[Rfam]
Gut-1 RNA: a 76-nucleotide RNA sequence. The family's RNA type in Rfam is small RNA. Rfam's curators put it in the seed alignment.
RNA sequence: CAGUGAAAUUUGCCCUUGUGGGCAAGUGAAAUACGCCUGCGGCGUGUGAAAUGCGAUAACUCGCGUGAAAUGUUCG
Numbered sequence: 001c002a003g004u005g006a007a008a009u010u011u012g013c014c015c016u017u018g019u020g021g022g023c024a025a026g027u028g029a030a031a032u033a034c035g036c037c038u039g040c041g042g043c044g045u046g047u048g049a050a051a052u053g054c055g056a057u058a059a060c061u062c063g064c065g066u067g068a069a070a071u072g073u074u075c076g
Stems, first nucleotide, its partner, number of pairs: 008027008031047006051066006